[Rfam]
RNA: U4atac minor spliceosomal RNA
RNA sequence: CCCAUCCUUGUCUUGGGAUUGUGUCACUAUCCAAUGAGCGCACCGUGAGGGUGGAACUGCAAACGUCUAUAUAACACAUCUGCAUCAACAACAGCUUUGCUUUACCUUCGUGCAAUUUUUGAAAAA
Numbered sequence: 001c002c003c004a005u006c007c008u009u010g011u012c013u014u015g016g017g018a019u020u021g022u023g024u025c026a027c028u029a030u031c032c033a034a035u036g037a038g039c040g041c042a043c044c045g046u047g048a049g050g051g052u053g054g055a056a057c058u059g060c061a062a063a064c065g066u067c068u069a070u071a072u073a074a075c076a077c078a079u080c081u082g083c084a085u086c087a088a089c090a091a092c093a094g095c096u097u098u099g100c101u102u103u104a105c106c107u108u109c110g111u112g113c114a115a116u117u118u119u120u121g122a123a124a125a126a
Stems, first nucleotide, its partner, number of pairs: 007017003021060003027054006038046002082113004087108001091103001093101003